[Rfam]
Overview: Small nucleolar RNA SNORD45: a 72-nucleotide RNA sequence from Otolemur garnettii. The organism belongs to Otolemur, within Eukaryota.
RNA sequence: GGUCGGUGAUGUACUGGCAUGUAUUAGCUGACUGCACAGUUGAUGUGAGCUCUAAUGUGACACUGAGACCUU
Numbered sequence: 001g002g003u004c005g006g007u008g009a010u011g012u013a014c015u016g017g018c019a020u021g022u023a024u025u026a027g028c029u030g031a032c033u034g035c036a037c038a039g040u041u042g043a044u045g046u047g048a049g050c051u052c053u054a055a056u057g058u059g060a061c062a063c064u065g066a067g068a069c070c071u072u
Base pairs, nucleotide, nucleotide: 001070002069003068004067
Pairs were carried over by alignment from the consensus structure, which was predicted with PFOLD. A search with the family's covariance model found it, with a score of 74 bits.